The record is an 83-nucleotide sequence from Acer yangbiense, which matches "Small nucleolar RNA SNORD25" in Rfam.
A reference for the family is Qu et al. (2001), "Identification of 10 novel snoRNA gene clusters from Arabidopsis thaliana", Nucleic Acids Res.
The family is grouped with related families in Rfam's "SNORD25 clan".
The family's RNA type in Rfam is C/D-box small nucleolar RNA.
RNA sequence: AGAACAGUGAUGAGUCUACAGACCUGUAAUGACUAGCGGACAUGAUCACAAAUCAAUUUGAACAUCUAAGGGACUGAGUUCAU
Numbered sequence: 001a002g003a004a005c006a007g008u009g010a011u012g013a014g015u016c017u018a019c020a021g022a023c024c025u026g027u028a029a030u031g032a033c034u035a036g037c038g039g040a041c042a043u044g045a046u047c048a049c050a051a052a053u054c055a056a057u058u059u060g061a062a063c064a065u066c067u068a069a070g071g072g073a074c075u076g077a078g079u080u081c082a083u
Stems, first nucleotide, its partner, number of pairs: 002081004